[Rfam]
RNA sequence: GGAUUCCCGCCGAGUAAGAACUAGCCAUUCGCUCGUAGCGAGUCUUGGAGGGGCAAAGGUAACUUUGGUCUUUAAGCGUAGACAGUUAGGUGGCGGGCCGAAAGCCAAAUGGUUGAAGGGAUUGAGCUCCAUAAACGUUUGUAAACCGAGAGGGCUGAUGCCUUAACUGCGUGUAGAAAGCAAUAUUUUAUCUUUUGUUAUAGGCGAGAAAGAUAAAACCUCUCUGGAGUCAGAGACCU
Numbered sequence: 001g002g003a004u005u006c007c008c009g010c011c012g013a014g015u016a017a018g019a020a021c022u023a024g025c026c027a028u029u030c031g032c033u034c035g036u037a038g039c040g041a042g043u044c045u046u047g048g049a050g051g052g053g054c055a056a057a058g059g060u061a062a063c064u065u066u067g068g069u070c071u072u073u074a075a076g077c078g079u080a081g082a083c084a085g086u087u088a089g090g091u092g093g094c095g096g097g098c099c100g101a102a103a104g105c106c107a108a109a110u111g112g113u114u115g116a117a118g119g120g121a122u123u124g125a126g127c128u129c130c131a132u133a134a135a136c137g138u139u140u141g142u143a144a145a146c147c148g149a150g151a152g153g154g155c156u157g158a159u160g161c162c163u164u165a166a167c168u169g170c171g172u173g174u175a176g177a178a179a180g181c182a183a184u185a186u187u188u189u190a191u192c193u194u195u196u197g198u199u200a201u202a203g204g205c206g207a208g209a210a211a212g213a214u215a216a217a218a219c220c221u222c223u224c225u226g227g228a229g230u231c232a233g234a235g236a237c238c239u
Stems, first nucleotide, its partner, number of pairs: 011035004018030003022207001024205002038086002042083004046078002048073005054067005123233001124231001126230006148224006154181003159175003186218011
Dot-bracket structure: ..........((((...(((.[.[[..))).))))..((..(((((((((((.(((((....))))).)))))...)).)))).))....................................((.((((((................(((((((((..(((...........)))...)))....(((((((((((.......]].])))))))))))))))))))))))).)......